Shown here is a 111-nucleotide sequence from Paenibacillaceae bacterium GAS479, a member of the family "Guanidine-I riboswitch aptamer". Pairs were carried over by alignment from the consensus structure. From the family's description: This family represents a conserved RNA structure found upstream of the ykkC and yxkD genes in Bacillus subtilis and related genes in other bacteria. The function of this family is unclear although it has been suggested that it may function to switch on efflux pumps and detoxification systems in response to harmful environmental molecules. Lineage of the source: Bacteria > Bacillati > Bacilli > Caryophanales > Paenibacillaceae.
RNA sequence: GCUCAAGUUGCCUAGGGUUCCGCGGCGCGAUUUUUUUCGCCGGUCUGGUCCGAGAGGGAACGGCACGGCCGACAGGCCGCGUUUACACGGAGGGAUAAAAGCCCGGGAGAU
Numbered sequence: 001g002c003u004c005a006a007g008u009u010g011c012c013u014a015g016g017g018u019u020c021c022g023c024g025g026c027g028c029g030a031u032u033u034u035u036u037u038c039g040c041c042g043g044u045c046u047g048g049u050c051c052g053a054g055a056g057g058g059a060a061c062g063g064c065a066c067g068g069c070c071g072a073c074a075g076g077c078c079g080c081g082u083u084u085a086c087a088c089g090g091a092g093g094g095a096u097a098a099a100a101g102c103c104c105g106g107g108a109g110a111u
Base pairs, nucleotide, nucleotide: 007061008060009059011057012056015051016050020048021047022045023042024041025040026039027038062083063082064081066079067078068077069076086106088109092104093103094102